Record summary: Rfam assigns this 129-nucleotide RNA from Mycolicibacterium sarraceniae to the family "ALIL pseudoknot". The family's consensus secondary structure is taken from published work. The source organism's lineage runs through Bacteria, Bacillati, Actinomycetota, Mycobacteriaceae and Mycobacterium (subgen. Mycolicibacterium).
RNA sequence: AGUUUUUUUCGGGGCGGAGCUCGACCGCCAACACAAGAAAUAGUCGAUUUCAUCGACGCCCAGCGCGAGGAGUUCGGGGUCGAGCCCAUCAUCACCGUCCUGCGAUCGGCAGGCGUGGUGAUGGCCCCG
Numbered sequence: 001a002g003u004u005u006u007u008u009u010c011g012g013g014g015c016g017g018a019g020c021u022c023g024a025c026c027g028c029c030a031a032c033a034c035a036a037g038a039a040a041u042a043g044u045c046g047a048u049u050u051c052a053u054c055g056a057c058g059c060c061c062a063g064c065g066c067g068a069g070g071a072g073u074u075c076g077g078g079g080u081c082g083a084g085c086c087c088a089u090c091a092u093c094a095c096c097g098u099c100c101u102g103c104g105a106u107c108g109g110c111a112g113g114c115g116u117g118g119u120g121a122u123g124g125c126c127c128c129g
Stems, first nucleotide, its partner, number of pairs: 013029005075129005086124002089121007
Dot-bracket structure: ............(((((.......))))).............................................(((((......((.(((((((...................))))))).)))))))